[Rfam]
RNA: Plastid-rps12 3UTR RNA
RNA sequence: GGCUUCUAUUGGUGUAAAUCCAUUAACCUCAAUUCAAGAUAAGAAACAAUUCUCCAUUGGUAGCAAAGGGUUAUCCGUCAAGCAAGGAAAUAUUGG
Numbered sequence: 001g002g003c004u005u006c007u008a009u010u011g012g013u014g015u016a017a018a019u020c021c022a023u024u025a026a027c028c029u030c031a032a033u034u035c036a037a038g039a040u041a042a043g044a045a046a047c048a049a050u051u052c053u054c055c056a057u058u059g060g061u062a063g064c065a066a067a068g069g070g071u072u073a074u075c076c077g078u079c080a081a082g083c084a085a086g087g088a089a090a091u092a093u094u095g096g
Base pairs, nucleotide, nucleotide: 010022011021012020052086053085056078057077059075060074061073062072063071064070